The family of this 160-nucleotide sequence from Penicillium steckii is "A. fumigatus sRNA Afu_254".
A search with the family's covariance model found it, with a score of 88 bits.
On this family, see Jochl et al., Nucleic Acids Res 2008: "Small ncRNA transcriptome analysis from Aspergillus fumigatus suggests a novel mechanism for regulation of protein synthesis".

RNA sequence: CAACAAAUCUCAAUCUAUACAAACAAUACUUCCUUCUUCUUUCGUGGUUCAGUCCAUCCCAACAAACAACCAUCAACAUGUCUCCCUGCUCCUGCAACUGCUGCUCCGGCAACUGCAACUCUUGCUCCUGCUCCAGCUGCACCGUAUGUCCUCCUUUCUC
Number, nucleotide and partner (000 for none) at each position: 001c000002a000003a000004c000005a000006a000007a000008u000009c000010u000011c000012a000013a000014u000015c000016u000017a000018u000019a000020c000021a000022a000023a000024c000025a000026a000027u000028a000029c000030u000031u000032c000033c000034u000035u000036c000037u000038u000039c000040u000041u000042u000043c000044g000045u000046g000047g000048u000049u000050c000051a000052g000053u000054c000055c000056a000057u000058c000059c000060c000061a000062a000063c000064a000065a000066a000067c000068a000069a000070c000071c000072a000073u000074c000075a000076a000077c000078a000079u000080g000081u000082c000083u000084c000085c000086c000087u111088g110089c109090u108091c000092c000093u000094g104095c103096a102097a000098c000099u000100g000101c000102u096103g095104c094105u000106c000107c000108g090109g089110c088111a087112a000113c000114u000115g140116c139117a138118a000119c000120u000121c000122u000123u000124g131125c130126u000127c000128c000129u000130g125131c124132u000133c000134c000135a000136g000137c000138u117139g116140c115141a000142c000143c000144g000145u000146a000147u000148g000149u000150c000151c000152u000153c000154c000155u000156u000157u000158c000159u000160c000